[Rfam]
RNA sequence: UAGAGAUUGUGCCCAUGCAUCGAAGAUGCAUAUUGGAAUGGCACAAUCGACCUGCCGCCGAGUGUAAACGAGGGGGCGAUACCCGUU
Numbered sequence: 001u002a003g004a005g006a007u008u009g010u011g012c013c014c015a016u017g018c019a020u021c022g023a024a025g026a027u028g029c030a031u032a033u034u035g036g037a038a039u040g041g042c043a044c045a046a047u048c049g050a051c052c053u054g055c056c057g058c059c060g061a062g063u064g065u066a067a068a069c070g071a072g073g074g075g076g077c078g079a080u081a082c083c084c085g086u087u
Stems, first nucleotide, its partner, number of pairs: 008045006015031006054077003058073002062069002
Dot-bracket structure: .......((((((.((((((.....))))))........))))))........(((.((..((....))..)).)))..........
Shown here is an 87-nucleotide RNA sequence, a member of the family "GA-cis RNA".
The base pairs follow the family's consensus structure, which is taken from published work.
Rfam classes the family as a small RNA.